Rfam assigns this 94-nucleotide RNA sequence from Cicer arietinum to the family "MIR390 microRNA precursor family". Pairs were carried over by alignment from the consensus structure, which was predicted with WAR.
[Rfam]
RNA sequence: UGGGAAAAUCUGUUAAGCUCAGGAGGGAUAGCGCCAUGAGAUAUGAUAUACGUACGUUUGGCGCUAUCCAUCCUGAGUUUUACGGAUUCUUCUU
Numbered sequence: 001u002g003g004g005a006a007a008a009u010c011u012g013u014u015a016a017g018c019u020c021a022g023g024a025g026g027g028a029u030a031g032c033g034c035c036a037u038g039a040g041a042u043a044u045g046a047u048a049u050a051c052g053u054a055c056g057u058u059u060g061g062c063g064c065u066a067u068c069c070a071u072c073c074u075g076a077g078u079u080u081u082a083c084g085g086a087u088u089c090u091u092c093u094u
Base pairs, nucleotide, nucleotide: 010085016079017078018077019076020075021074022073023072024071026069027068028067029066030065031064032063033062034061035060